The record is a 139-nucleotide RNA from Catharus ustulatus, which matches "Small nucleolar RNA SNORA8" in Rfam. Rfam links the family to the GO terms nucleolus and RNA processing. Rfam describes the family as follows. ACA8 is a member of the H/ACA class of snoRNA that guide the sites of modification of uridines to pseudouridines. The family has 5 seed sequences and 1,490 matches in Rfam 15.1. It is annotated as an H/ACA-box small nucleolar RNA.
RNA sequence: UGCAUUGUUGCAGUACUUGCACCCAGCAGCCUUAUCCUGUGGGAUGUUCAAAAAGCAGUGCUACACCAGUGCAGCAUUUGGCAUCCUUAGUUUUCAUUCUGCUGUGUCUGUUAAACCUGGUAUUUUUGCUGAAACAGUC
Numbered sequence: 001u002g003c004a005u006u007g008u009u010g011c012a013g014u015a016c017u018u019g020c021a022c023c024c025a026g027c028a029g030c031c032u033u034a035u036c037c038u039g040u041g042g043g044a045u046g047u048u049c050a051a052a053a054a055g056c057a058g059u060g061c062u063a064c065a066c067c068a069g070u071g072c073a074g075c076a077u078u079u080g081g082c083a084u085c086c087u088u089a090g091u092u093u094u095c096a097u098u099c100u101g102c103u104g105u106g107u108c109u110g111u112u113a114a115a116c117c118u119g120g121u122a123u124u125u126u127u128g129c130u131g132a133a134a135c136a137g138u139c
Stems, first nucleotide, its partner, number of pairs: 002061006017053002019047003023043002026040004064128002068124003072119003080108005
Dot-bracket structure: .((((((.........(((((.((.((((.......)))).)).)))....))..))))))..((..(((.(((.....(((((...................)))))........)))..)))..))...........